[Rfam]
RNA sequence: UAAUAUGUCUACGGUAAAUUCUUAUCUAAAUAUAGCAGAUCUACACCUGACUGUUUAGAAUCCUCUAUUAUUUCAAGUAUGGUUACCAAUUAAAAUGCUCAAGUUUUUAAUGAACAAAAU
Numbered sequence: 001u002a003a004u005a006u007g008u009c010u011a012c013g014g015u016a017a018a019u020u021c022u023u024a025u026c027u028a029a030a031u032a033u034a035g036c037a038g039a040u041c042u043a044c045a046c047c048u049g050a051c052u053g054u055u056u057a058g059a060a061u062c063c064u065c066u067a068u069u070a071u072u073u074c075a076a077g078u079a080u081g082g083u084u085a086c087c088a089a090u091u092a093a094a095a096u097g098c099u100c101a102a103g104u105u106u107u108u109a110a111u112g113a114a115c116a117a118a119a120u
Stems, first nucleotide, its partner, number of pairs: 004118001006116002008113002014107001019102001023097003027092003031088001
Shown here is a 120-nucleotide sequence from Populus trichocarpa, a member of the family "MIR480 microRNA precursor family". A search with the family's covariance model found it, with a score of 60 bits. For this family Rfam cites "Novel and mechanical stress-responsive MicroRNAs in Populus trichocarpa that are absent from Arabidopsis" (Lu et al., Plant Cell, 2005). The base pairs follow the family's consensus structure, which was predicted with WAR. The source organism's lineage runs through Eukaryota, Viridiplantae, Tracheophyta, fabids and Populus. Gene Ontology terms of the family: RISC complex and miRNA-mediated post-transcriptional gene silencing.